[Rfam]
Actinobacteria sRNA Ms_IGR-5: a 217-nucleotide sequence from Cellulomonas carbonis. It scores 78 bits against the family's covariance model.

RNA sequence: ACACGGGAAAGGAGGUGGUCCGAGCGAUGAUGUCUCUUCGGACGCGUGAGGUGACUGUCCGCUAGUCGCCCGAGUGCAUCGGACGGAGUGCCUCCGGUCCCCUACCGCAUCAGGCGCGGCAGCGAGACCCAGGCAGUCACCGCAGCCCGUGGGAGUCGUGGUCUCGUCCACCACGACGCGCCGGUCGUCCCGACCGGUAGCCCACGGGCUGUCCCGU
Numbered sequence: 001a002c003a004c005g006g007g008a009a010a011g012g013a014g015g016u017g018g019u020c021c022g023a024g025c026g027a028u029g030a031u032g033u034c035u036c037u038u039c040g041g042a043c044g045c046g047u048g049a050g051g052u053g054a055c056u057g058u059c060c061g062c063u064a065g066u067c068g069c070c071c072g073a074g075u076g077c078a079u080c081g082g083a084c085g086g087a088g089u090g091c092c093u094c095c096g097g098u099c100c101c102c103u104a105c106c107g108c109a110u111c112a113g114g115c116g117c118g119g120c121a122g123c124g125a126g127a128c129c130c131a132g133g134c135a136g137u138c139a140c141c142g143c144a145g146c147c148c149g150u151g152g153g154a155g156u157c158g159u160g161g162u163c164u165c166g167u168c169c170a171c172c173a174c175g176a177c178g179c180g181c182c183g184g185u186c187g188u189c190c191c192g193a194c195c196g197g198u199a200g201c202c203c204a205c206g207g208g209c210u211g212u213c214c215c216g217u
Stems, first nucleotide, its partner, number of pairs: 014059006060124003063119001065117002068115003074110003143211011157175006
By type it is a small RNA.